About this RNA:
A member of the RNA family "Small nucleolar RNA Z105" from Rhododendron williamsianum, 70 nucleotides long. Rfam links the family to the GO terms nucleolus and RNA processing. A search with the family's covariance model found it, with a score of 58 bits. The organism belongs to Rhododendron, within Eukaryota.
[Rfam]
RNA sequence: GCAUAAUGAUGAUGAAUCUGAAAUAUUCCGAUUAUUUCAUGAAAGGAUAAAAUCCUCCUACUCAUUCUGA
Numbered sequence: 001g002c003a004u005a006a007u008g009a010u011g012a013u014g015a016a017u018c019u020g021a022a023a024u025a026u027u028c029c030g031a032u033u034a035u036u037u038c039a040u041g042a043a044a045g046g047a048u049a050a051a052a053u054c055c056u057c058c059u060a061c062u063c064a065u066u067c068u069g070a
Stems, first nucleotide, its partner, number of pairs: 006065004027046002